[Rfam]
RNA sequence: UCCAUCGUGAGGUGGAAUCUGAAGGAAGCUGGAUGUGGGAAUUUAGUAACCCACGGGUAAACCUCUGGUCUGACGGACAGAAAUCGCAUUAAAGGCUGUGCGUGAGGGGAAGUCUGCCACACAAGAUGAAGCCCGGUAUCUACACGGAAUCAUGUAUAGUAAAUGCGGCAGAUGGAUACAGAAAACAAGGAGAG
Numbered sequence: 001u002c003c004a005u006c007g008u009g010a011g012g013u014g015g016a017a018u019c020u021g022a023a024g025g026a027a028g029c030u031g032g033a034u035g036u037g038g039g040a041a042u043u044u045a046g047u048a049a050c051c052c053a054c055g056g057g058u059a060a061a062c063c064u065c066u067g068g069u070c071u072g073a074c075g076g077a078c079a080g081a082a083a084u085c086g087c088a089u090u091a092a093a094g095g096c097u098g099u100g101c102g103u104g105a106g107g108g109g110a111a112g113u114c115u116g117c118c119a120c121a122c123a124a125g126a127u128g129a130a131g132c133c134c135g136g137u138a139u140c141u142a143c144a145c146g147g148a149a150u151c152a153u154g155u156a157u158a159g160u161a162a163a164u165g166c167g168g169c170a171g172a173u174g175g176a177u178a179c180a181g182a183a184a185a186c187a188a189g190g191a192g193a194g
Base pairs, nucleotide, nucleotide: 001016002015003014004013005012006011052194054192058187063181064180066178067177068173069172070171071170072169084168085167086166087165088164089163095160096159097158099156100155101154102153103152104151105150106134107133108132112127113126114125115124